Shown here is a 151-nucleotide RNA sequence from Camphora micrantha, a member of the family "Small nucleolar RNA snoR111". The base pairs follow the family's consensus structure, which was predicted with WAR. Gene Ontology terms of the family: RNA processing and nucleolus. The family's RNA type in Rfam is H/ACA-box small nucleolar RNA.
RNA sequence: AAAAGGGUGAUUGAGAAGAAUAUGUUCUCUCUUUAUCUCUCUUUCUCUGAUAAAUGGAGGGAAUUAGGGAAAUCAAAGUGUAGAGAUAUUGUUUCAAUGGCCCUUUCGUCUUUGGUUGGACUUGGCGAUUUGAUUGUUGACUCGAUCACAU
Numbered sequence: 001a002a003a004a005g006g007g008u009g010a011u012u013g014a015g016a017a018g019a020a021u022a023u024g025u026u027c028u029c030u031c032u033u034u035a036u037c038u039c040u041c042u043u044u045c046u047c048u049g050a051u052a053a054a055u056g057g058a059g060g061g062a063a064u065u066a067g068g069g070a071a072a073u074c075a076a077a078g079u080g081u082a083g084a085g086a087u088a089u090u091g092u093u094u095c096a097a098u099g100g101c102c103c104u105u106u107c108g109u110c111u112u113u114g115g116u117u118g119g120a121c122u123u124g125g126c127g128a129u130u131u132g133a134u135u136g137u138u139g140a141c142u143c144g145a146u147c148a149c150a151u
Stems, first nucleotide, its partner, number of pairs: 006055001008053001010051002013047006080147001083143003088134004097129002100126003